[Rfam]
RNA sequence: CGUUGGCCCUCCAAAGGUCAGCACCGAAGAGGCUUGUUUAUCAUUGCCAGGCGUGCGGACGGGAAACCCCCAUCCAAUCCAAGGCAGCAUCGUCGGGUGAAGAGCCCAUCGCGCUUCUCGUGUCUCCAUCGCACGAAGCGGGAUGUGAUCUU
Numbered sequence: 001c002g003u004u005g006g007c008c009c010u011c012c013a014a015a016g017g018u019c020a021g022c023a024c025c026g027a028a029g030a031g032g033c034u035u036g037u038u039u040a041u042c043a044u045u046g047c048c049a050g051g052c053g054u055g056c057g058g059a060c061g062g063g064a065a066a067c068c069c070c071c072a073u074c075c076a077a078u079c080c081a082a083g084g085c086a087g088c089a090u091c092g093u094c095g096g097g098u099g100a101a102g103a104g105c106c107c108a109u110c111g112c113g114c115u116u117c118u119c120g121u122g123u124c125u126c127c128a129u130c131g132c133a134c135g136a137a138g139c140g141g142g143a144u145g146u147g148a149u150c151u152u
Stems, first nucleotide, its partner, number of pairs: 002022007031048003055132003080092001101115002104112002
Overview:
The family of this 152-nucleotide RNA sequence from Microvirga aerilata is "speF leader". The match comes from Rfam's covariance-model search (49 bits). Rfam's curators write: This family is a putative regulatory RNA structure that is found upstream of the speF gene encoding ornithine decarboxylase in Agrobacterium tumefaciens and other alpha-proteobacteria. Taxonomically the source falls in Microvirga (Bacteria, Pseudomonadati, Pseudomonadota, Methylobacteriaceae). Pairs were carried over by alignment from the consensus structure, which was predicted with RNAalifold. Rfam links the family to the GO term regulation of gene expression. The family's RNA type in Rfam is cis-regulatory leader.